U4 spliceosomal RNA: a 134-nucleotide sequence from Octodon degus. Rfam links the family to the GO terms U4 snRNP and spliceosomal tri-snRNP complex assembly. U4 small nuclear RNA (U4 snRNA) is a component of the major U2-dependent spliceosome. It scores 61 bits against the family's covariance model. The base pairs follow the family's consensus structure, which is taken from published work. Rfam classes the family as a spliceosomal small nuclear RNA.

RNA sequence: AGCUUUGCGCAGUGGCAGUAUCAUAGCCAAUGAGGUUUAUCCGAGGCGCAAUUAUUGCUAAUAGAGUCUAAUCUAAUUCACUAUAGGAUUUAUUUCACCAACUUUAUUAGUAUGUUCAGAAUGAAGCAAAGUUU
Numbered sequence: 001a002g003c004u005u006u007g008c009g010c011a012g013u014g015g016c017a018g019u020a021u022c023a024u025a026g027c028c029a030a031u032g033a034g035g036u037u038u039a040u041c042c043g044a045g046g047c048g049c050a051a052u053u054a055u056u057g058c059u060a061a062u063a064g065a066g067u068c069u070a071a072u073c074u075a076a077u078u079c080a081c082u083a084u085a086g087g088a089u090u091u092a093u094u095u096c097a098c099c100a101a102c103u104u105u106a107u108u109a110g111u112a113u114g115u116u117c118a119g120a121a122u123g124a125a126g127c128a129a130a131g132u133u134u
Stems, first nucleotide, its partner, number of pairs: 020052002024048001026047003034042002080111003083107005089101002124134004